[Rfam]
RNA sequence: UGGAGGAUUGAGAAGGUAAGACAGACUUCAUGCUGUAUCUUACUGGUUAUGGCCUCCAACAUUAUAAUAGUGCAAAGGCAGCUCAUGCUCUCCUCCUGACAUGAGGGAAAGCAGUACUGCAUUUGCACAUAACAU
Numbered sequence: 001u002g003g004a005g006g007a008u009u010g011a012g013a014a015g016g017u018a019a020g021a022c023a024g025a026c027u028u029c030a031u032g033c034u035g036u037a038u039c040u041u042a043c044u045g046g047u048u049a050u051g052g053c054c055u056c057c058a059a060c061a062u063u064a065u066a067a068u069a070g071u072g073c074a075a076a077g078g079c080a081g082c083u084c085a086u087g088c089u090c091u092c093c094u095c096c097u098g099a100c101a102u103g104a105g106g107g108a109a110a111g112c113a114g115u116a117c118u119g120c121a122u123u124u125g126c127a128c129a130u131a132a133c134a135u
Stems, first nucleotide, its partner, number of pairs: 002057005015044004019038001021036004078126002086119002093114002096111002100107001
A member of the RNA family "Small nucleolar RNA SNORA47" from Anas platyrhynchos, 135 nucleotides long. Its family is annotated with nucleolus and RNA processing in the Gene Ontology. The family's RNA type in Rfam is H/ACA-box small nucleolar RNA. The family's consensus secondary structure was predicted with WAR. Rfam 15.1 lists 733 matches to the family in 635 species. NCBI's taxonomy places the organism under Eukaryota, Euteleostomi, Sarcopterygii, Dipnotetrapodomorpha, Anas platyrhynchos.